[Rfam]
RNA sequence: GGGGGUGUAGCUCAGUGGUAGAGCGCGUGCUUAGCAUGCACGAGGCCCCGGGUUCAAUCCCCGGCACUUCCA
Numbered sequence: 001g002g003g004g005g006u007g008u009a010g011c012u013c014a015g016u017g018g019u020a021g022a023g024c025g026c027g028u029g030c031u032u033a034g035c036a037u038g039c040a041c042g043a044g045g046c047c048c049c050g051g052g053u054u055c056a057a058u059c060c061c062c063g064g065c066a067c068u069u070c071c072a
Base pairs, nucleotide, nucleotide: 001071002070003069004068005067006066007065010024011023012022013021026042027041028040029039030038048064049063050062051061052060
RNA: tRNA